[Rfam]
RNA sequence: GGGGACCUUCGGGGCCCUAUAAUUCGGGUCUGACCCUUCAGACCCUUUAGCUGACGGAAGACAGAGA
Numbered sequence: 001g002g003g004g005a006c007c008u009u010c011g012g013g014g015c016c017c018u019a020u021a022a023u024u025c026g027g028g029u030c031u032g033a034c035c036c037u038u039c040a041g042a043c044c045c046u047u048u049a050g051c052u053g054a055c056g057g058a059a060g061a062c063a064g065a066g067a
Stems, first nucleotide, its partner, number of pairs: 001018004006014003027044007
A member of the RNA family "L2-Alphaproteobacteria ribosomal protein leader" from Pseudorhodobacter sp. MZDSW-24AT, 67 nucleotides long. The match comes from Rfam's covariance-model search (60 bits). The family's RNA type in Rfam is cis-regulatory leader.